[Rfam]
RNA sequence: CUCGCCUACAGCACAGACUGUCUAUAGUAAAGUUGCCGAAGAGAUUCUAAACGUAUUUGUAAGUACGUGGUCUUUACUAGUUAACCGUAUCUUUAUUGAUGCGGUUAUUUUUUUAUG
Numbered sequence: 001c002u003c004g005c006c007u008a009c010a011g012c013a014c015a016g017a018c019u020g021u022c023u024a025u026a027g028u029a030a031a032g033u034u035g036c037c038g039a040a041g042a043g044a045u046u047c048u049a050a051a052c053g054u055a056u057u058u059g060u061a062a063g064u065a066c067g068u069g070g071u072c073u074u075u076a077c078u079a080g081u082u083a084a085c086c087g088u089a090u091c092u093u094u095a096u097u098g099a100u101g102c103g104g105u106u107a108u109u110u111u112u113u114u115a116u117g
Base pairs, nucleotide, nucleotide: 001016002015025079026078027077028076029075030074035071036070037069038047039046040045051068052067053066054065055064056063082107083106084105085104086103087102088101089100090099091098

This 117-nucleotide RNA from Phietavirus StauST3983 belongs to the Rfam family "DUF3800-I RNA". About the family: Actinobacteria, Firmicutes, Fusobacteria, Proteobacteria (1 example), Tenericutes (2 examples). By type it is a small RNA. Lineage of the source: Viruses > Duplodnaviria > Uroviricota > Azeredovirinae > Phietavirus StauST3983.